[Rfam]
RNA sequence: CGAGUCGGCCGGGCGGCCGCGGCGGGGACCCGAACGGUCCCCGGCGAGGAAGGUCCGGGCUCCACAAGGCAGGGUGGUCGGUAACACCGACCCGGAGUGAUCCGCGGGACAGUGCCACAGAGAACAGACCGCCUCCGCGUCCGCGGAGGUAAGGGUGAAACGGUGGUGUAAGAGACCACCAGCGCCCCAGGCGACUGGGGCGGCUCGGUAAACCCCACCCGGAGCAAGGUCAAGAAGGGCCCGCCACGGCGGACCCGCGCAGGCGAUCGAGGGCAGCCUGCCCGAGCCUGCGGGUAGACCGCUCGAGGCCGCCGGCAACGACGGCCCUAGAUGGAUGGCCGCCCCUCCGCCGAGGCGGAGCGACAGAACCCGGCCUACAGGCCGACUCGUCCA
Numbered sequence: 001c002g003a004g005u006c007g008g009c010c011g012g013g014c015g016g017c018c019g020c021g022g023c024g025g026g027g028a029c030c031c032g033a034a035c036g037g038u039c040c041c042c043g044g045c046g047a048g049g050a051a052g053g054u055c056c057g058g059g060c061u062c063c064a065c066a067a068g069g070c071a072g073g074g075u076g077g078u079c080g081g082u083a084a085c086a087c088c089g090a091c092c093c094g095g096a097g098u099g100a101u102c103c104g105c106g107g108g109a110c111a112g113u114g115c116c117a118c119a120g121a122g123a124a125c126a127g128a129c130c131g132c133c134u135c136c137g138c139g140u141c142c143g144c145g146g147a148g149g150u151a152a153g154g155g156u157g158a159a160a161c162g163g164u165g166g167u168g169u170a171a172g173a174g175a176c177c178a179c180c181a182g183c184g185c186c187c188c189a190g191g192c193g194a195c196u197g198g199g200g201c202g203g204c205u206c207g208g209u210a211a212a213c214c215c216c217a218c219c220c221g222g223a224g225c226a227a228g229g230u231c232a233a234g235a236a237g238g239g240c241c242c243g244c245c246a247c248g249g250c251g252g253a254c255c256c257g258c259g260c261a262g263g264c265g266a267u268c269g270a271g272g273g274c275a276g277c278c279u280g281c282c283c284g285a286g287c288c289u290g291c292g293g294g295u296a297g298a299c300c301g302c303u304c305g306a307g308g309c310c311g312c313c314g315g316c317a318a319c320g321a322c323g324g325c326c327c328u329a330g331a332u333g334g335a336u337g338g339c340c341g342c343c344c345c346u347c348c349g350c351c352g353a354g355g356c357g358g359a360g361c362g363a364c365a366g367a368a369c370c371c372g373g374c375c376u377a378c379a380g381g382c383c384g385a386c387u388c389g390u391c392c393a
Stems, first nucleotide, its partner, number of pairs: 001389010011378001012343007020046002023043006051376003055373005060224004067279004072220005077091005092106001093104004107215002112213002114209003129154002131150008162180006182204001183202008228300004259291006271283004307326005313320002

This 393-nucleotide RNA from Actinoallomurus iriomotensis belongs to the Rfam family "Bacterial RNase P class A". The base pairs follow the family's consensus structure, which is taken from published work. The source organism's lineage runs through Bacteria, Actinomycetes, Streptosporangiales, Thermomonosporaceae and Actinoallomurus. It scores 280 bits against the family's covariance model.